Shown here is a 129-nucleotide sequence from Colius striatus, a member of the family "Small Cajal body specific RNA 4".
Its family is annotated with nucleolus, RNA processing and Cajal body in the Gene Ontology.
Rfam's curators write: scaRNAs are a specific class of small nuclear RNAs which localise to the Cajal bodies and guide the modification of RNA polymerase II transcribed spliceosomal RNAs U1, U2, U4, U5 and U12.
The literature on the family includes a 2002 paper in EMBO J by Darzacq et al., "Cajal body-specific small nuclear RNAs: a novel class of 2'-O-methylation and pseudouridylation guide RNAs".
The base pairs follow the family's consensus structure, which was predicted with RNAfold.
Taxonomically the source falls in Colius (Eukaryota, Opisthokonta, Sauropsida, Coliidae).
Rfam classes the family as a small Cajal body RNA.
RNA sequence: ACUGGAGAGCUGAUCAGACUGGGUCUGAAGAGUGAGACUCAGAUGACAGUAGCCUCCUAAAAGAAAAUGGAUGGAGAGAGCAGCCCUACUUACAGAGAAAGAAAGGGCUGACUGUGCCACCCAACACUU
Numbered sequence: 001a002c003u004g005g006a007g008a009g010c011u012g013a014u015c016a017g018a019c020u021g022g023g024u025c026u027g028a029a030g031a032g033u034g035a036g037a038c039u040c041a042g043a044u045g046a047c048a049g050u051a052g053c054c055u056c057c058u059a060a061a062a063g064a065a066a067a068u069g070g071a072u073g074g075a076g077a078g079a080g081c082a083g084c085c086c087u088a089c090u091u092a093c094a095g096a097g098a099a100a101g102a103a104a105g106g107g108c109u110g111a112c113u114g115u116g117c118c119a120c121c122c123a124a125c126a127c128u129u
Stems, first nucleotide, its partner, number of pairs: 003059001004057004017044001019042001021040006069121002079113002081110007091102001